[Rfam]
RNA sequence: CUAUAGCCAGGACAGCUCUCGGGAUAGCCUGGACGUCGAUAGCCGGAUAGUGCAACGUACGAAAUCUACGCUGGCAGCC
Numbered sequence: 001c002u003a004u005a006g007c008c009a010g011g012a013c014a015g016c017u018c019u020c021g022g023g024a025u026a027g028c029c030u031g032g033a034c035g036u037c038g039a040u041a042g043c044c045g046g047a048u049a050g051u052g053c054a055a056c057g058u059a060c061g062a063a064a065u066c067u068a069c070g071c072u073g074g075c076a077g078c079c
Stems, first nucleotide, its partner, number of pairs: 001015002004012001007032005016023002034057003038053001042075005
Dot-bracket structure: [[.[..(((((].]]((....))....))))).[[[.[...(((((......].]]].............)))))....
Shown here is a 79-nucleotide sequence from Pseudomonas protegens, a member of the family "Proteo-phage-1 RNA". By type it is a small RNA. NCBI's taxonomy places the organism under Bacteria, Pseudomonadati, Gammaproteobacteria, Pseudomonadaceae, Pseudomonas protegens. The sequence is in the family's curated seed alignment.